[Rfam]
A member of the RNA family "mir-3661 microRNA precursor family" from Microcebus murinus, 84 nucleotides long. The family has 2 seed sequences and 172 matches in Rfam 15.1. The family's consensus secondary structure was predicted with RNAalifold. The match comes from Rfam's covariance-model search (79 bits).
RNA sequence: CUUGCAGAGGCUCUUGACCUAGGACUUGGAUAGCUGCGUGCACACAUUCAGCUGCUGAAUCCACUGGUCCAGCUCCUCGGUGAG
Numbered sequence: 001c002u003u004g005c006a007g008a009g010g011c012u013c014u015u016g017a018c019c020u021a022g023g024a025c026u027u028g029g030a031u032a033g034c035u036g037c038g039u040g041c042a043c044a045c046a047u048u049c050a051g052c053u054g055c056u057g058a059a060u061c062c063a064c065u066g067g068u069c070c071a072g073c074u075c076c077u078c079g080g081u082g083a084g
Stems, first nucleotide, its partner, number of pairs: 002083004007078004013072002016069004022062003026059002029056001031054006040047001